[Rfam]
RNA sequence: UCGAGAGCAAUGAUCAAGCGCAGUAGAGACUAGCAUCGGAGCAAAAAGAGAAUUGUCGGUAGGUGCAAGACAAUCCAACCUAGAAUCGAAGUACACUUGAGAGCAAACUGUGACAAACAGCGUCUAUCCGCGAUAAGGAUUUGAGAGGUAGUUUUUAACUACAAUAUGGGUGGUAACACGGCAAAGUCGUCCCUAAU
Numbered sequence: 001u002c003g004a005g006a007g008c009a010a011u012g013a014u015c016a017a018g019c020g021c022a023g024u025a026g027a028g029a030c031u032a033g034c035a036u037c038g039g040a041g042c043a044a045a046a047a048g049a050g051a052a053u054u055g056u057c058g059g060u061a062g063g064u065g066c067a068a069g070a071c072a073a074u075c076c077a078a079c080c081u082a083g084a085a086u087c088g089a090a091g092u093a094c095a096c097u098u099g100a101g102a103g104c105a106a107a108c109u110g111u112g113a114c115a116a117a118c119a120g121c122g123u124c125u126a127u128c129c130g131c132g133a134u135a136a137g138g139a140u141u142u143g144a145g146a147g148g149u150a151g152u153u154u155u156u157a158a159c160u161a162c163a164a165u166a167u168g169g170g171u172g173g174u175a176a177c178a179c180g181g182c183a184a185a186g187u188c189g190u191c192c193c194u195a196a197u
Base pairs, nucleotide, nucleotide: 007104008103015099016098017097018096026087027086030083031082039076041075052074053073054072055071056070057069121132122131123130148162149161150160151159152158153157168193169192170191178190179189180188181187182186
RNA: T-box leader